[Rfam]
RNA: Archaeal large subunit ribosomal RNA, nucleotides 3341 to 3555
Organism: Chrysodeixis includens
RNA sequence: UGGUCGUUGCGAUAGUAGUACCGUUUAAUCCCACAAUAACAACUGUAUCGGACAUUUGGUUCAUGCACUCGGUCGAACGGCCGGUGGUGCGAAGCUAAGUCCGCGGAAGCAUCUCUGAAAGCAUCUAAGAGAGAAAUCCAUCUAGUCAAAUUCGGCAAGGAUAUGUGCGGAGGCCCGGGAGUCGAGAGGCUCUAGCAAUGUGACUGUACUAGCCG
Numbered sequence: 001u002g003g004u005c006g007u008u009g010c011g012a013u014a015g016u017a018g019u020a021c022c023g024u025u026u027a028a029u030c031c032c033a034c035a036a037u038a039a040c041a042a043c044u045g046u047a048u049c050g051g052a053c054a055u056u057u058g059g060u061u062c063a064u065g066c067a068c069u070c071g072g073u074c075g076a077a078c079g080g081c082c083g084g085u086g087g088u089g090c091g092a093a094g095c096u097a098a099g100u101c102c103g104c105g106g107a108a109g110c111a112u113c114u115c116u117g118a119a120a121g122c123a124u125c126u127a128a129g130a131g132a133g134a135a136a137u138c139c140a141u142c143u144a145g146u147c148a149a150a151u152u153c154g155g156c157a158a159g160g161a162u163a164u165g166u167g168c169g170g171a172g173g174c175c176c177g178g179g180a181g182u183c184g185a186g187a188g189g190c191u192c193u194a195g196c197a198a199u200g201u202g203a204c205u206g207u208a209c210u211a212g213c214c215g
Stems, first nucleotide, its partner, number of pairs: 006156004013144003018048004023043003049103005057097003065090005070083005105139003112132005205215002